[Rfam]
RNA: ZMP/ZTP riboswitch aptamer (pfl RNA motif)
Organism: Actinomyces graevenitzii
Nucleotides: 107
Stems, first nucleotide, its partner, number of pairs: 006048007015039002017095004024035004084102005
Number, partner (000 for none) and nucleotide at each position: 001000u002000g003000u004000u005000a006048u007047c008046g009045c010044u011043g012042u013000a014000a015039c016038u017095g018094g019093c020092g021000u022000g023000g024035g025034u026033g027032g028000g029000u030000c031000a032027c033026c034025a035024c036000c037000g038016g039015g040000g041000a042012g043011c044010g045009g046008c047007g048006a049000g050000c051000c052000c053000u054000u055000g056000a057000a058000a059000c060000u061000u062000a063000a064000g065000u066000u067000u068000u069000a070000a071000g072000g073000g074000g075000u076000a077000a078000a079000c080000c081000a082000u083000g084102g085101c086100g087099c088098c089000g090000c091000c092020c093019g094018c095017c096000u097000g098088g099087g100086u101085g102084c103000c104000u105000a106000g107000g